Rfam assigns this 137-nucleotide sequence from Tissierella praeacuta to the family "Ribosomal protein L20 leader".
The base pairs follow the family's consensus structure, which was predicted with CMfinder.
For this family Rfam cites "Diverse mechanisms for regulating ribosomal protein synthesis in Escherichia coli" (Zengel and Lindahl, Prog Nucleic Acid Res Mol Biol, 1994).
It scores 60 bits against the family's covariance model.
Its family is annotated with regulation of gene expression in the Gene Ontology.

RNA sequence: GGGUUUAAGUAGAAGUGUCCGCUUCUCACCUUAUAGCUUUGCUCAUAAGGUUUUAUAUGAAAAAAUAGUCUUAUUAUAUAAGGCUCAUGUUUUUAUGAAUUUAAGCGGGUGUUCUAUACCCGCUUUUAAUUUUUUGA
Numbered sequence: 001g002g003g004u005u006u007a008a009g010u011a012g013a014a015g016u017g018u019c020c021g022c023u024u025c026u027c028a029c030c031u032u033a034u035a036g037c038u039u040u041g042c043u044c045a046u047a048a049g050g051u052u053u054u055a056u057a058u059g060a061a062a063a064a065a066u067a068g069u070c071u072u073a074u075u076a077u078a079u080a081a082g083g084c085u086c087a088u089g090u091u092u093u094u095a096u097g098a099a100u101u102u103a104a105g106c107g108g109g110u111g112u113u114c115u116a117u118a119c120c121c122g123c124u125u126u127u128a129a130u131u132u133u134u135u136g137a
Base pairs, nucleotide, nucleotide: 011026012025013024014023015022016021028051029050030049033046034045036042037041104124105123106122107121108120109119110118111117112116